[Rfam]
RNA sequence: ACACUUAGAACAGUUAGAUGGCUUUAAUGGUUCCCUUGGCUUUGACACUGGGAUAGAGCAAUGUGUGUUUUUUACCUCUGCAUUGAAUAGACUGUUUAUCCUUUUGAAUGCAUUCAGAAAGUCAACACAUUA
Numbered sequence: 001a002c003a004c005u006u007a008g009a010a011c012a013g014u015u016a017g018a019u020g021g022c023u024u025u026a027a028u029g030g031u032u033c034c035c036u037u038g039g040c041u042u043u044g045a046c047a048c049u050g051g052g053a054u055a056g057a058g059c060a061a062u063g064u065g066u067g068u069u070u071u072u073u074a075c076c077u078c079u080g081c082a083u084u085g086a087a088u089a090g091a092c093u094g095u096u097u098a099u100c101c102u103u104u105u106g107a108a109u110g111c112a113u114u115c116a117g118a119a120a121g122u123c124a125a126c127a128c129a130u131u132a
Stems, first nucleotide, its partner, number of pairs: 004052005011044002014039004020033001023030002055071006077118004081110004085105003090100002